[Rfam]
RNA sequence: CAGCAGUCUGGCGGCGGUUAGACAGACAAGGUUAACAGCUAAAAUAAUUCAUUUAAGAUGGCACACUUCAAGCGUGAAAGAUCGCUGACAAAAGUGCCCGCACCCUGUUUCGAGCCAAAAAAACAGGAGGGCGAAAGUAGGUUAAGAGACAUCGCAAGACCUUCAAAACGAACUAUGCGAGUAGUUCACAGCUAAGUCUAUAUAGAUAUGCUGAAACGCGACGAGAUGGGCUGAUAGAGACAUGAAGAGAACACGUGCAUAACUGGAAACAGUAGCUUGUAGGGCAUGCAGACGCAAGUAGAAAGCACGUUCAAGAUUUGAAAUAAUCUUGAAGUUUUUGGCUCC
Numbered sequence: 001c002a003g004c005a006g007u008c009u010g011g012c013g014g015c016g017g018u019u020a021g022a023c024a025g026a027c028a029a030g031g032u033u034a035a036c037a038g039c040u041a042a043a044a045u046a047a048u049u050c051a052u053u054u055a056a057g058a059u060g061g062c063a064c065a066c067u068u069c070a071a072g073c074g075u076g077a078a079a080g081a082u083c084g085c086u087g088a089c090a091a092a093a094g095u096g097c098c099c100g101c102a103c104c105c106u107g108u109u110u111c112g113a114g115c116c117a118a119a120a121a122a123a124c125a126g127g128a129g130g131g132c133g134a135a136a137g138u139a140g141g142u143u144a145a146g147a148g149a150c151a152u153c154g155c156a157a158g159a160c161c162u163u164c165a166a167a168a169c170g171a172a173c174u175a176u177g178c179g180a181g182u183a184g185u186u187c188a189c190a191g192c193u194a195a196g197u198c199u200a201u202a203u204a205g206a207u208a209u210g211c212u213g214a215a216a217c218g219c220g221a222c223g224a225g226a227u228g229g230g231c232u233g234a235u236a237g238a239g240a241c242a243u244g245a246a247g248a249g250a251a252c253a254c255g256u257g258c259a260u261a262a263c264u265g266g267a268a269a270c271a272g273u274a275g276c277u278u279g280u281a282g283g284g285c286a287u288g289c290a291g292a293c294g295c296a297a298g299u300a301g302a303a304a305g306c307a308c309g310u311u312c313a314a315g316a317u318u319u320g321a322a323a324u325a326a327u328c329u330u331g332a333a334g335u336u337u338u339u340g341g342c343u344c345c
Stems, first nucleotide, its partner, number of pairs: 007022006060098005071086004104127006112344008152221004170187006189213004196207004253310006262273004275299006311332007
The record is a 345-nucleotide sequence from Streptococcus mutans, which matches "GEBRO RNA" in Rfam. Taxonomically the source falls in Streptococcus (Bacteria, Bacillati, Bacillota, Bacilli). It is one of the family's seed sequences.